[Rfam]
RNA: TPP riboswitch aptamer (THI element)
RNA sequence: UGUGUCCACUAGGGGAGCUUCUAUAGCUGAGAAAAGGCUUUGACCUUUGACCCUUUGAACCUGAUCCGGUUUAUUCCGGCGUAGGGAAGUGGUGUGUAGAACGC
Numbered sequence: 001u002g003u004g005u006c007c008a009c010u011a012g013g014g015g016a017g018c019u020u021c022u023a024u025a026g027c028u029g030a031g032a033a034a035a036g037g038c039u040u041u042g043a044c045c046u047u048u049g050a051c052c053c054u055u056u057g058a059a060c061c062u063g064a065u066c067c068g069g070u071u072u073a074u075u076c077c078g079g080c081g082u083a084g085g086g087a088a089g090u091g092g093u094g095u096g097u098a099g100a101a102c103g104c
Stems, first nucleotide, its partner, number of pairs: 006092005011054004016048001017027003034047004060085004066079004
Dot-bracket structure: .....(((((((((.((((.....)))......((((......)))))..)))).....((((..((((......))))..))))..)))))............